[Rfam]
RNA: Actino-pnp RNA
Organism: Kutzneria viridogrisea
RNA sequence: GCCGGUCCUCGGUAGUGGUUCCCGGGUCAUCCCGGGGGCUUCGAUCGAAGACCGGC
Number, nucleotide and partner (000 for none) at each position: 001g056002c055003c054004g053005g052006u051007c050008c000009u048010c047011g046012g045013u044014a000015g000016u000017g040018g039019u038020u037021c036022c035023c034024g033025g032026g031027u000028c000029a000030u000031c026032c025033c024034g023035g022036g021037g020038g019039c018040u017041u000042c000043g000044a013045u012046c011047g010048a009049a000050g007051a006052c005053c004054g003055g002056c001